[Rfam]
RNA sequence: UUUCCAGUUGCGCUUAAUCUCCAUAUGGAGAGCGGGGGAACCGAUACAUCCUUCUGCCUAACCCACGGGCAAGGAAUGUAUUUGAAUUCUUCUAGGGGUGAAUUUGAUAGAUUGUCUGGCCAUUAUACUGGCUGGGCAUCGACCAUUAGGGCGGCUCUCUCGCCCGAACCCGACAGCUAACCUCGUAAGCGUUCAUAGAGAGAUCUC
Numbered sequence: 001u002u003u004c005c006a007g008u009u010g011c012g013c014u015u016a017a018u019c020u021c022c023a024u025a026u027g028g029a030g031a032g033c034g035g036g037g038g039a040a041c042c043g044a045u046a047c048a049u050c051c052u053u054c055u056g057c058c059u060a061a062c063c064c065a066c067g068g069g070c071a072a073g074g075a076a077u078g079u080a081u082u083u084g085a086a087u088u089c090u091u092c093u094a095g096g097g098g099u100g101a102a103u104u105u106g107a108u109a110g111a112u113u114g115u116c117u118g119g120c121c122a123u124u125a126u127a128c129u130g131g132c133u134g135g136g137c138a139u140c141g142a143c144c145a146u147u148a149g150g151g152c153g154g155c156u157c158u159c160u161c162g163c164c165c166g167a168a169c170c171c172g173a174c175a176g177c178u179a180a181c182c183u184c185g186u187a188a189g190c191g192u193u194c195a196u197a198g199a200g201a202g203a204u205c206u207c
Stems, first nucleotide, its partner, number of pairs: 011191004018031003032186006042095001096171003105145002149165004
Rfam assigns this 207-nucleotide RNA sequence from Paenibacillus sambharensis to the family "c-di-AMP riboswitch aptamer (ydaO/yuaA leader)". It scores 81 bits against the family's covariance model. The base pairs follow the family's consensus structure.